[Rfam]
RNA sequence: GUAAACCUUCAGGGCAGGGUGAAAUUCCCGACCGGCGGUUAAAGUCCGCGAGCCAAUAGGCUGACUUGGUGAAAUUCCAAGACCGACAGUAAAGUCUGGAUGAGAGAAGGAGAGA
Number, nucleotide and partner (000 for none) at each position: 001g000002u000003a000004a000005a000006c110007c109008u108009u107010c106011a000012g000013g000014g000015c000016a000017g029018g028019g027020u000021g000022a000023a000024a000025u000026u000027c019028c018029c017030g000031a095032c094033c085034g084035g049036c048037g047038g046039u000040u000041a000042a000043a000044g083045u082046c038047c037048g036049c035050g000051a000052g061053c060054c059055a000056a000057u000058a000059g054060g053061c052062u000063g000064a000065c081066u080067u079068g078069g077070u000071g000072a000073a000074a000075u000076u000077c069078c068079a067080a066081g065082a045083c044084c034085g033086a000087c098088a097089g096090u000091a000092a000093a000094g032095u031096c089097u088098g087099g000100a000101u000102g000103a000104g000105a000106g010107a009108a008109g007110g006111a000112g000113a000114g000115a000
RNA: FMN riboswitch aptamer (RFN element)
Organism: Anaeromicrobium sediminis